[Rfam]
RNA sequence: AAGCAAAGCACGAAUUUUAAAUUUAAGACUUCAUGGAUGAUGUUAAAUCGAGUUUCUGAUGCU
Number, nucleotide and partner (000 for none) at each position: 001a000002a063003g062004c061005a060006a000007a000008g000009c000010a000011c000012g000013a000014a000015u000016u000017u000018u000019a000020a000021a000022u000023u000024u000025a000026a000027g000028a000029c000030u000031u000032c000033a000034u000035g000036g000037a000038u000039g000040a000041u000042g000043u000044u000045a000046a000047a000048u000049c000050g000051a000052g000053u000054u000055u000056c000057u000058g000059a000060u005061g004062c003063u002

About this RNA:
The family of this 63-nucleotide RNA sequence from Solanum tuberosum is "Small nucleolar RNA snoR60". On this family, see Barneche et al., J Biol Chem 2000: "Fibrillarin genes encode both a conserved nucleolar protein and a novel small nucleolar RNA involved in ribosomal RNA methylation in Arabidopsis thaliana". A search with the family's covariance model found it, with a score of 42 bits. Clan: SNORD101 clan. The family's RNA type in Rfam is C/D-box small nucleolar RNA.